[Rfam]
Rfam assigns this 86-nucleotide RNA sequence from Arsenophonus endosymbiont of Aphis craccivora to the family "RpsF leader". NCBI's taxonomy places the organism under Bacteria, Pseudomonadati, Pseudomonadota, Morganellaceae, Arsenophonus. A reference for the family is Fu et al. (2014), "Bacterial RNA motif in the 5' UTR of rpsF interacts with an S6:S18 complex", RNA. Conserved and widely distributed to many bacterial species RNA structure. It precedes operon containing rpsF, which encodes ribosomal protein S6. It is annotated as a cis-regulatory leader. Its family is annotated with protein binding and negative regulation of translation in the Gene Ontology.
RNA sequence: GCCGCACUUAAAUAAGUUCCUUGCCUCCAUGGGAUGCGGCUGACCCUGACAGGAGGCUGAUUAAUCCGUAAGGAGCAAAACUCAUG
Numbered sequence: 001g002c003c004g005c006a007c008u009u010a011a012a013u014a015a016g017u018u019c020c021u022u023g024c025c026u027c028c029a030u031g032g033g034a035u036g037c038g039g040c041u042g043a044c045c046c047u048g049a050c051a052g053g054a055g056g057c058u059g060a061u062u063a064a065u066c067c068g069u070a071a072g073g074a075g076c077a078a079a080a081c082u083c084a085u086g
Stems, first nucleotide, its partner, number of pairs: 016076007023057006031046003
Dot-bracket structure: ...............(((((((((((((..(((..........))).....))))))............)))))))..........